[Rfam]
RNA: DUF3800-XI RNA
RNA sequence: UGGGCUGGUCGAACGACCCUGGUCCACCGAGCAGCGGGGAAUUCCCCG
Numbered sequence: 001u002g003g004g005c006u007g008g009u010c011g012a013a014c015g016a017c018c019c020u021g022g023u024c025c026a027c028c029g030a031g032c033a034g035c036g037g038g039g040a041a042u043u044c045c046c047c048g
Base pairs, nucleotide, nucleotide: 001026002025003024004023005022006021007018008017009016010015